Background:
This 125-nucleotide RNA sequence from Bucco capensis belongs to the Rfam family "Small nucleolar RNA ACA64".

RNA sequence: ACAGUCUGAAAAUCACUUGGGGUCUUCUGUGGCCCUUGGUGCGAUAACUGUGCCAACAGCAGUGGGAGCAUUAAACUCAUUACCUACAGUAAAGUGUGGGUAGUGAAUCCCAUGCUUCUAUAAUC
Numbered sequence: 001a002c003a004g005u006c007u008g009a010a011a012a013u014c015a016c017u018u019g020g021g022g023u024c025u026u027c028u029g030u031g032g033c034c035c036u037u038g039g040u041g042c043g044a045u046a047a048c049u050g051u052g053c054c055a056a057c058a059g060c061a062g063u064g065g066g067a068g069c070a071u072u073a074a075a076c077u078c079a080u081u082a083c084c085u086a087c088a089g090u091a092a093a094g095u096g097u098g099g100g101u102a103g104u105g106a107a108u109c110c111c112a113u114g115c116u117u118c119u120a121u122a123a124u125c
Stems, first nucleotide, its partner, number of pairs: 006050001008048001010045001014041003021034004065118001067116005077106005086097002

The literature on the family includes a 2006 paper in RNA by Schattner et al., "A computational screen for mammalian pseudouridylation guide H/ACA RNAs". Its family is annotated with RNA processing and nucleolus in the Gene Ontology. The source organism's lineage runs through Eukaryota, Sarcopterygii, Sauropsida, Archosauria and Bucco.